[Rfam]
RNA: U4 spliceosomal RNA
Organism: Penicillium concentricum
RNA sequence: GUCCCUGUGCACGGGCUUUACACGUAUCAGUGAGGAGAAAUCCGAGAUCGUGGUUUUGCUAGUUGAAAAGUAUCAACUGACCCCUUCAAGCGGGCUCCUGGCACGCUUGGGAAUUUUUGAAACACCUUGACGCCUUGAAUCCUGAAGU
Numbered sequence: 001g002u003c004c005c006u007g008u009g010c011a012c013g014g015g016c017u018u019u020a021c022a023c024g025u026a027u028c029a030g031u032g033a034g035g036a037g038a039a040a041u042c043c044g045a046g047a048u049c050g051u052g053g054u055u056u057u058g059c060u061a062g063u064u065g066a067a068a069a070g071u072a073u074c075a076a077c078u079g080a081c082c083c084c085u086u087c088a089a090g091c092g093g094g095c096u097c098c099u100g101g102c103a104c105g106c107u108u109g110g111g112a113a114u115u116u117u118u119g120a121a122a123c124a125c126c127u128u129g130a131c132g133c134c135u136u137g138a139a140u141c142c143u144g145a146a147g148u
Stems, first nucleotide, its partner, number of pairs: 021052004026048003034043003085111008094102003